[Rfam]
RNA: Bacterial large subunit ribosomal RNA, nucleotides 911 to 1351
Organism: Desulfonema limicola
RNA sequence: CUCCCCGAAAUAUAUUUAGGUAUAGCCUUGCGAAUUAAGUAACGGGGGUAGAGCACCGGAUGGGCUAGGGGUCCCACCAGAUUACCAAACCUAACCGAACUCCGAAUACCGUUAACUGUAAUCGCAGGAGUCAGACUGCGGGAGCUAAGUUCCGUAGUCGAGAGGGAAACAGCCCAGAUCGCCGGCUAAGGCCCCCAAGUGUGUGCUAAGUGGGAAAGGAUGUGGAAAUGCACAGACAACCAGGAGGUUGGCUUAGAAGCAGCCAUCCUUUAAAGAAAGCGUAAUAGCUCACUGGUCGAGUGAGUCUGCGCCGAAGAUGUAACGGGGCUCAAGCACACCGCCGAAGCCGCGGAUGUACAUUAAUUUGUAUGUGGUAGGGGAGCAUUGUGUCAUGGCUGAAGCCUGACCGUAAGGACAGGUGGACGUGACAGAAGAGACCAU
Number, nucleotide and partner (000 for none) at each position: 001c382002u381003c380004c379005c378006c377007g000008a000009a000010a000011u024012a023013u022014a021015u020016u000017u000018a000019g000020g015021u014022a013023u012024a011025g000026c130027c128028u127029u126030g125031c124032g123033a122034a000035u000036u121037a000038a117039g116040u114041a113042a112043c111044g110045g109046g000047g000048g000049u000050a000051g103052a101053g100054c000055a000056c000057c097058g096059g095060a000061u093062g092063g091064g090065c000066u000067a000068g086069g085070g083071g082072u081073c080074c000075c000076a000077c000078c000079a000080g073081a072082u071083u070084a000085c069086c068087a000088a000089a000090c064091c063092u062093a061094a000095c059096c058097g057098a000099a000100c053101u052102c000103c051104g000105a000106a000107u000108a000109c045110c044111g043112u042113u041114a040115a000116c039117u038118g000119u000120a000121a036122u033123c032124g031125c030126a029127g028128g027129a000130g026131u000132c000133a000134g159135a158136c157137u156138g155139c154140g153141g152142g151143a150144g000145c000146u000147a000148a000149g000150u143151u142152c141153c140154g139155u138156a137157g136158u135159c134160g000161a000162g000163a000164g175165g174166g173167a000168a000169a000170c000171a000172g000173c166174c165175c164176a000177g000178a000179u352180c351181g350182c349183c000184g348185g347186c346187u000188a000189a000190g342191g341192c340193c000194c000195c000196c000197a000198a000199g339200u000201g338202u337203g336204u335205g334206c333207u000208a000209a000210g000211u000212g000213g000214g000215a000216a000217a000218g312219g311220a000221u000222g309223u308224g307225g306226a305227a000228a000229u302230g301231c300232a000233c000234a000235g000236a000237c000238a000239a296240c295241c294242a293243g292244g000245a269246g268247g267248u000249u000250g264251g263252c262253u000254u000255a000256g000257a000258a000259g000260c000261a000262g252263c251264c250265a000266u000267c247268c246269u245270u274271u000272a000273a000274a270275g290276a000277a000278a000279g288280c287281g000282u000283a000284a000285u000286a000287g280288c279289u000290c275291a000292c243293u242294g241295g240296u239297c000298g000299a000300g231301u230302g229303a000304g000305u226306c225307u224308g223309c222310g000311c219312c218313g000314a000315a000316g000317a000318u000319g000320u000321a000322a000323c000324g000325g000326g000327g000328c000329u000330c000331a000332a000333g206334c205335a204336c203337a202338c201339c199340g192341c191342c190343g000344a000345a000346g186347c185348c184349g182350c181351g180352g179353a372354u371355g370356u369357a368358c367359a366360u000361u000362a000363a000364u000365u000366u359367g358368u357369a356370u355371g354372u353373g000374g000375u000376a000377g006378g005379g004380g003381a002382g001383c436384a000385u433386u432387g000388u430389g429390u428391c427392a426393u425394g424395g000396c000397u000398g000399a000400a000401g420402c419403c418404u417405g416406a000407c414408c413409g000410u000411a000412a000413g408414g407415a000416c405417a404418g403419g402420u401421g000422g000423a000424c394425g393426u392427g391428a390429c389430a388431g000432a386433a385434g000435a000436g383437a000438c000439c000440a000441u000